[Rfam]
RNA sequence: AAAAGCUGCAGCCGAGAACCUUCAGGCUGCCUAACUUAUCACGCCUCGGUCUUUGACCACGGAUGUACUGGCACUGGCCCGCGAGGCGUUUAGAGGAAGGUCGGGAUUUCCCGGCCUUUUUCGUU
Numbered sequence: 001a002a003a004a005g006c007u008g009c010a011g012c013c014g015a016g017a018a019c020c021u022u023c024a025g026g027c028u029g030c031c032u033a034a035c036u037u038a039u040c041a042c043g044c045c046u047c048g049g050u051c052u053u054u055g056a057c058c059a060c061g062g063a064u065g066u067a068c069u070g071g072c073a074c075u076g077g078c079c080c081g082c083g084a085g086g087c088g089u090u091u092a093g094a095g096g097a098a099g100g101u102c103g104g105g106a107u108u109u110c111c112c113g114g115c116c117u118u119u120u121u122c123g124u125u
Stems, first nucleotide, its partner, number of pairs: 004032001009029005041089006048079004054073002057071003093122012
RNA: Alphaproteobacterial sRNA ar35